[Rfam]
RNA sequence: UCAACUUUUAAUUAAAUCCAGAGAGAUUUAAAAGGUUGUAUGUAGUGGUGUGCUUUAAAUAUGAUUUUUUGGCAUGCUUACCUCUUUGCAACCUUUAUGCAAAGAGGUUUUUUUAU
Numbered sequence: 001u002c003a004a005c006u007u008u009u010a011a012u013u014a015a016a017u018c019c020a021g022a023g024a025g026a027u028u029u030a031a032a033a034g035g036u037u038g039u040a041u042g043u044a045g046u047g048g049u050g051u052g053c054u055u056u057a058a059a060u061a062u063g064a065u066u067u068u069u070u071g072g073c074a075u076g077c078u079u080a081c082c083u084c085u086u087u088g089c090a091a092c093c094u095u096u097a098u099g100c101a102a103a104g105a106g107g108u109u110u111u112u113u114u115a116u
Stems, first nucleotide, its partner, number of pairs: 003037007013030006048073002052069001058067002080108011
RNA: PyrR binding site
Organism: Bacilli bacterium VT-13-104